[Rfam]
This 104-nucleotide RNA from Aneurinibacillus soli belongs to the Rfam family "S10-Clostridia ribosomal protein leader". It scores 45 bits against the family's covariance model. The family's RNA type in Rfam is cis-regulatory leader. For this family Rfam cites "Discovery of 20 novel ribosomal leader candidates in bacteria and archaea" (Eckert and Weinberg, BMC Microbiol, 2020).
RNA sequence: UAGACGCGAUGACGCGGGAGGUUGCUGACACACCAGGCUCCGAUGCCAUGGCCGGUUGUCAGGUUUUUUCGCUGAGAAUGUCUAUUUAUCAAAAUAGGCGACAA
Dot-bracket structure: .............(((.((((...(((((............................)))))..)))).)))......((((..((((......)))).)))).